This 129-nucleotide sequence belongs to the Rfam family "LOOT RNA".
RNA sequence: GAUCUAACUUCUGAAUGUACUUCAGAAUAUGAUCAUACAGAAUCCGUCCAAAGUAAAAAACUCCUAGUCAGAGUUACUUUGGACGGUUAUAUCUCGAAAGAGGUAUAGGCAUUCCCUACGGGGCUUGUC
Numbered sequence: 001g002a003u004c005u006a007a008c009u010u011c012u013g014a015a016u017g018u019a020c021u022u023c024a025g026a027a028u029a030u031g032a033u034c035a036u037a038c039a040g041a042a043u044c045c046g047u048c049c050a051a052a053g054u055a056a057a058a059a060a061c062u063c064c065u066a067g068u069c070a071g072a073g074u075u076a077c078u079u080u081g082g083a084c085g086g087u088u089a090u091a092u093c094u095c096g097a098a099a100g101a102g103g104u105a106u107a108g109g110c111a112u113u114c115c116c117u118a119c120g121g122g123g124c125u126u127g128u129c
Stems, first nucleotide, its partner, number of pairs: 001034004009027007044086011060074004088107008108129004
Pairs were carried over by alignment from the consensus structure, which is taken from published work.